[Rfam]
RNA: Actinobacteria sRNA Ms_IGR-5
RNA sequence: ACACGGGAAAGGAGGUGGUCCAGCGUUGUAUAGCUAUAGGACUCGUGAGGUGGCUGCCCGCUAGCCGCUGUCCUUGACAGCUCCGAUCGUCGAGACCGUGUGGCAGCGGUGCGGCGAAUCCACGACAGCCACCCGACCCCCGGGGUGCCGGCCCAGUCCAGCCGGUCCGCGUCGAAGACGCGGAAGCCCCGGGGGUCGUCUCAU
Numbered sequence: 001a002c003a004c005g006g007g008a009a010a011g012g013a014g015g016u017g018g019u020c021c022a023g024c025g026u027u028g029u030a031u032a033g034c035u036a037u038a039g040g041a042c043u044c045g046u047g048a049g050g051u052g053g054c055u056g057c058c059c060g061c062u063a064g065c066c067g068c069u070g071u072c073c074u075u076g077a078c079a080g081c082u083c084c085g086a087u088c089g090u091c092g093a094g095a096c097c098g099u100g101u102g103g104c105a106g107c108g109g110u111g112c113g114g115c116g117a118a119u120c121c122a123c124g125a126c127a128g129c130c131a132c133c134c135g136a137c138c139c140c141c142g143g144g145g146u147g148c149c150g151g152c153c154c155a156g157u158c159c160a161g162c163c164g165g166u167c168c169g170c171g172u173c174g175a176a177g178a179c180g181c182g183g184a185a186g187c188c189c190c191g192g193g194g195g196u197c198g199u200c201u202c203a204u
Stems, first nucleotide, its partner, number of pairs: 014058006059116004064112002067107004072102001074100001134198013147166006